[Rfam]
RNA sequence: GUCCUCAUCAACGCUGCGUUUCUAUGCUACAAACAGAUAUACUUGUUUACUCAAGUGUAUCAGGUCGCUUGUGAUCAAUUAUUUGCAUAUGAGAAAUUCGGAGUACUCUUCAAUAUUACCUCGUUCCUUUUUCUUUGGACAAAGAUGAACAGGUCUGCCCGUGAGGGUUCGGCGUGAUUUCACGUCUGCAAUUGGCAUCAGAAAAGCAGGGCAUGGUCACUCUCUAUAUAUCAAAUCCGAAAGGAGGAGAGAAAAGAGUCGUGUGCUAUUGUUCCUAUGGGAGAGCCGUUGCGAAGAUUGUGUGUGCUGAGGCAUGACACUUAAGUGCAAUACGUGGCGUGCUGGACUUGUCAUUACUUCGGUGAUGACAAGUUGAGUACAAUUCGAUUCCGAUUACUCUGUUGGGGAC
Numbered sequence: 001g002u003c004c005u006c007a008u009c010a011a012c013g014c015u016g017c018g019u020u021u022c023u024a025u026g027c028u029a030c031a032a033a034c035a036g037a038u039a040u041a042c043u044u045g046u047u048u049a050c051u052c053a054a055g056u057g058u059a060u061c062a063g064g065u066c067g068c069u070u071g072u073g074a075u076c077a078a079u080u081a082u083u084u085g086c087a088u089a090u091g092a093g094a095a096a097u098u099c100g101g102a103g104u105a106c107u108c109u110u111c112a113a114u115a116u117u118a119c120c121u122c123g124u125u126c127c128u129u130u131u132u133c134u135u136u137g138g139a140c141a142a143a144g145a146u147g148a149a150c151a152g153g154u155c156u157g158c159c160c161g162u163g164a165g166g167g168u169u170c171g172g173c174g175u176g177a178u179u180u181c182a183c184g185u186c187u188g189c190a191a192u193u194g195g196c197a198u199c200a201g202a203a204a205a206g207c208a209g210g211g212c213a214u215g216g217u218c219a220c221u222c223u224c225u226a227u228a229u230a231u232c233a234a235a236u237c238c239g240a241a242a243g244g245a246g247g248a249g250a251g252a253a254a255a256g257a258g259u260c261g262u263g264u265g266c267u268a269u270u271g272u273u274c275c276u277a278u279g280g281g282a283g284a285g286c287c288g289u290u291g292c293g294a295a296g297a298u299u300g301u302g303u304g305u306g307c308u309g310a311g312g313c314a315u316g317a318c319a320c321u322u323a324a325g326u327g328c329a330a331u332a333c334g335u336g337g338c339g340u341g342c343u344g345g346a347c348u349u350g351u352c353a354u355u356a357c358u359u360c361g362g363u364g365a366u367g368a369c370a371a372g373u374u375g376a377g378u379a380c381a382a383u384u385c386g387a388u389u390c391c392g393a394u395u396a397c398u399c400u401g402u403u404g405g406g407g408a409c
Stems, first nucleotide, its partner, number of pairs: 001409004009401002013338007023089004036076003099392005108296004157168004171186005188292004194287003209276003339380005345374012
RNA: Nuclear RNase P